[Rfam]
RNA sequence: CCAUUGCGCGAUGCUCACCUCCUUGACUUGUCUGGGUGGUUUGUAUCGGGCUACAGCGGGGGGGACAUCUUUCACAGCGUGUCCCGUGCCCGACCCCGCACUUUACUCCUGUGCCUACUCCUACUUACCGUAGGGGUAGGCAUCUUUUUGCUCCCCGCCCGGUAGACGGGCGGCCUAAA
Numbered sequence: 001c002c003a004u005u006g007c008g009c010g011a012u013g014c015u016c017a018c019c020u021c022c023u024u025g026a027c028u029u030g031u032c033u034g035g036g037u038g039g040u041u042u043g044u045a046u047c048g049g050g051c052u053a054c055a056g057c058g059g060g061g062g063g064g065a066c067a068u069c070u071u072u073c074a075c076a077g078c079g080u081g082u083c084c085c086g087u088g089c090c091c092g093a094c095c096c097c098g099c100a101c102u103u104u105a106c107u108c109c110u111g112u113g114c115c116u117a118c119u120c121c122u123a124c125u126u127a128c129c130g131u132a133g134g135g136g137u138a139g140g141c142a143u144c145u146u147u148u149u150g151c152u153c154c155c156c157g158c159c160c161g162g163u164a165g166a167c168g169g170g171c172g173g174c175c176u177a178a179a
Base pairs, nucleotide, nucleotide: 006051007050009048010047011046012045013044017040018039019038021036022035023034025032026031056099057098058097059096060095061094062085063084064083065082066081067080112142113141114140115139116138117137118136119135120134121133122132123131124130150174151173152172154170155169156168157167
The record is a 179-nucleotide RNA, which matches "Hepatitis C virus (HCV) cis-acting replication element (CRE)" in Rfam. The base pairs follow the family's consensus structure, which was predicted with RNAfold. The literature on the family includes a 2016 paper in Mol Cell by Pirakitikulr et al., "The Coding Region of the HCV Genome Contains a Network of Regulatory RNA Structures". It is annotated as a cis-regulatory element.